RNA sequence: AAUCCGCACUCACCACGUGUGGCAGGAGCGGGGGAACCAGGUAAGCCGCCGGCCGGAGCGAUCCGGAACGGCUCGGGGUUAAGACGCGUCCCCACGCGGCCGGGCAUCUCCAGCCCGAACCCGACAGCUCACCUCGCAGGCGCCGGAGAGGAAACCC
Numbered sequence: 001a002a003u004c005c006g007c008a009c010u011c012a013c014c015a016c017g018u019g020u021g022g023c024a025g026g027a028g029c030g031g032g033g034g035a036a037c038c039a040g041g042u043a044a045g046c047c048g049c050c051g052g053c054c055g056g057a058g059c060g061a062u063c064c065g066g067a068a069c070g071g072c073u074c075g076g077g078g079u080u081a082a083g084a085c086g087c088g089u090c091c092c093c094a095c096g097c098g099g100c101c102g103g104g105c106a107u108c109u110c111c112a113g114c115c116c117g118a119a120c121c122c123g124a125c126a127g128c129u130c131a132c133c134u135c136g137c138a139g140g141c142g143c144c145g146g147a148g149a150g151g152a153a154a155c156c157c
Stems, first nucleotide, its partner, number of pairs: 003027003028137006038075001076122003085098003102116004